Small nucleolar RNA SNORA77: a 122-nucleotide RNA sequence from Rhinolophus ferrumequinum. Rfam links the family to the GO terms RNA processing and nucleolus. NCBI's taxonomy places the organism under Eukaryota, Eumetazoa, Chordata, Amniota, Rhinolophus. Rfam's curators write: ACA63 (SNORA77) is a member of the H/ACA class of snoRNAs that guide the sites of modification of uridines to pseudouridines. This snoRNA was identified by computational screening and its expression in mouse experimentally verified by Northern blot and primer extension analysis. ACA63 is proposed to guide the pseudouridylation of 18S rRNA U814. By type it is an H/ACA-box small nucleolar RNA. On this family, see Schattner et al., RNA 2006: "A computational screen for mammalian pseudouridylation guide H/ACA RNAs".
RNA sequence: GUAGACUCACUCUGUACCUGGCUAUAGUCCCAAGUGGGCGCUUUUUCCGUCUUCCACAGAGCAUUCCGGGUGCUGACUACUUUGAUCUGUCAAGGGUCGCUCAGCUGCCGGGAGACACGAGG
Numbered sequence: 001g002u003a004g005a006c007u008c009a010c011u012c013u014g015u016a017c018c019u020g021g022c023u024a025u026a027g028u029c030c031c032a033a034g035u036g037g038g039c040g041c042u043u044u045u046u047c048c049g050u051c052u053u054c055c056a057c058a059g060a061g062c063a064u065u066c067c068g069g070g071u072g073c074u075g076a077c078u079a080c081u082u083u084g085a086u087c088u089g090u091c092a093a094g095g096g097u098c099g100c101u102c103a104g105c106u107g108c109c110g111g112g113a114g115a116c117a118c119g120a121g122g
Base pairs, nucleotide, nucleotide: 001054003052004051005050006049014041015040017038018037019036020035023032065113066112067111069109070108071107072105073104074103075102076101079097080096081095082094